[Rfam]
RNA: Small nucleolar RNA snoR111
RNA sequence: UAAUUUAUGAACGGGACAGUAUUUUUAUUCCGUGUCGUCUUUGAGGAAGAGGUAUAAUGAUGCCGGCGAGAUAUCGUUUCAUUCGUCAUUUUCUCCGUUGACGAUUCGAUUGUUGCUCGUCCACAU
Numbered sequence: 001u002a003a004u005u006u007a008u009g010a011a012c013g014g015g016a017c018a019g020u021a022u023u024u025u026u027a028u029u030c031c032g033u034g035u036c037g038u039c040u041u042u043g044a045g046g047a048a049g050a051g052g053u054a055u056a057a058u059g060a061u062g063c064c065g066g067c068g069a070g071a072u073a074u075c076g077u078u079u080c081a082u083u084c085g086u087c088a089u090u091u092u093c094u095c096c097g098u099u100g101a102c103g104a105u106u107c108g109a110u111u112g113u114u115g116c117u118c119g120u121c122c123a124c125a126u
Stems, first nucleotide, its partner, number of pairs: 007038004013031004065122002067119004073110004083104006091097001